[Rfam]
RNA sequence: AUUUGAUAAAGGCAAACCUACUGAAAAGUUGGGGCGCAAAACUAUAAGGGGCUAAGGACAUCACAAUGUCUAUGCUAGCCAGUUGCCGUA
Numbered sequence: 001a002u003u004u005g006a007u008a009a010a011g012g013c014a015a016a017c018c019u020a021c022u023g024a025a026a027a028g029u030u031g032g033g034g035c036g037c038a039a040a041a042c043u044a045u046a047a048g049g050g051g052c053u054a055a056g057g058a059c060a061u062c063a064c065a066a067u068g069u070c071u072a073u074g075c076u077a078g079c080c081a082g083u084u085g086c087c088g089u090a
Stems, first nucleotide, its partner, number of pairs: 012037002017032002020029003040084004048080002050076003057070004
Source information: A member of the RNA family "c-di-GMP-I riboswitch aptamer" from Paraliobacillus sp. PM-2, 90 nucleotides long. The match comes from Rfam's covariance-model search (76 bits). Taxonomically the source falls in Paraliobacillus (Bacteria, Bacillati, Bacillota, Caryophanales). The family's consensus secondary structure is taken from published work.